[Rfam]
RNA sequence: GGGCAGUGAUGAUUGCACGUUUGCACUGACACCUCUUAUGUUAGUAUUCACUCGAGUGGUACGAUGAUUCAAACGUGUUUUCUGAGCUC
Numbered sequence: 001g002g003g004c005a006g007u008g009a010u011g012a013u014u015g016c017a018c019g020u021u022u023g024c025a026c027u028g029a030c031a032c033c034u035c036u037u038a039u040g041u042u043a044g045u046a047u048u049c050a051c052u053c054g055a056g057u058g059g060u061a062c063g064a065u066g067a068u069u070c071a072a073a074c075g076u077g078u079u080u081u082c083u084g085a086g087c088u089c
Base pairs, nucleotide, nucleotide: 001089002088003087004086